[Rfam]
The family of this 266-nucleotide RNA from Pelecanoides urinatrix is "RNase MRP". Its Rfam clan is "RNaseP clan". RNase MRP is an enzymatically active ribonucleoprotein with two distinct roles in eukaryotes. The match comes from Rfam's covariance-model search (151 bits).
RNA sequence: GGAUGCUCUGAAGACCUGCUCGCUAGGCCACGUACGGAGGACCUUGGUUUCUCAUGGGCCUCGCGCCCGCCUAGGGGAAAGUCCCCGGACCACCGGCAGAGAGUGCCGGGCGCUGCCGGCGCCCUCGCCCGCCCUCACCUCACGUCUUCUCCGCCGAGACGCCCCCGGGCCGAGCGGGUGAGCGCGGGGCGGGCUCUCGUCACGGCCACAGACACGCAGGUAGUGCGCAGGCGCACCAACAGAACGGGGCUCACUCUCAGGCCAUC
Numbered sequence: 001g002g003a004u005g006c007u008c009u010g011a012a013g014a015c016c017u018g019c020u021c022g023c024u025a026g027g028c029c030a031c032g033u034a035c036g037g038a039g040g041a042c043c044u045u046g047g048u049u050u051c052u053c054a055u056g057g058g059c060c061u062c063g064c065g066c067c068c069g070c071c072u073a074g075g076g077g078a079a080a081g082u083c084c085c086c087g088g089a090c091c092a093c094c095g096g097c098a099g100a101g102a103g104u105g106c107c108g109g110g111c112g113c114u115g116c117c118g119g120c121g122c123c124c125u126c127g128c129c130c131g132c133c134c135u136c137a138c139c140u141c142a143c144g145u146c147u148u149c150u151c152c153g154c155c156g157a158g159a160c161g162c163c164c165c166c167g168g169g170c171c172g173a174g175c176g177g178g179u180g181a182g183c184g185c186g187g188g189g190c191g192g193g194c195u196c197u198c199g200u201c202a203c204g205g206c207c208a209c210a211g212a213c214a215c216g217c218a219g220g221u222a223g224u225g226c227g228c229a230g231g232c233g234c235a236c237c238a239a240c241a242g243a244a245c246g247g248g249g250c251u252c253a254c255u256c257u258c259a260g261g262c263c264a265u266c
Stems, first nucleotide, its partner, number of pairs: 002266004007261005014221006023074006037062004042057002080251002083249004095107004108124006126193001128191001132189003136186001138184001139182004151177004161170003223236005